The record is a 91-nucleotide sequence from Aquilegia coerulea, which matches "Small nucleolar RNA U61" in Rfam.
[Rfam]
RNA sequence: UCGCAAUGAUGAAAGAAACUGUGUCUAGACGAUGAUCUCUUCGGAGAGUAAUCGGUGAUGGAAACACAACCCUCUAAGAAGCACUGAGCGA
Numbered sequence: 001u002c003g004c005a006a007u008g009a010u011g012a013a014a015g016a017a018a019c020u021g022u023g024u025c026u027a028g029a030c031g032a033u034g035a036u037c038u039c040u041u042c043g044g045a046g047a048g049u050a051a052u053c054g055g056u057g058a059u060g061g062a063a064a065c066a067c068a069a070c071c072c073u074c075u076a077a078g079a080a081g082c083a084c085u086g087a088g089c090g091a
Stems, first nucleotide, its partner, number of pairs: 001091004
For this family Rfam cites "Plant snoRNA database" (Brown et al., Nucleic Acids Res, 2003). NCBI's taxonomy places the organism under Eukaryota, Tracheophyta, Mesangiospermae, Thalictroideae, Aquilegia. Pairs were carried over by alignment from the consensus structure, which was predicted with WAR. Rfam 15.1 lists 401 matches to the family in 204 species. The match comes from Rfam's covariance-model search (60 bits).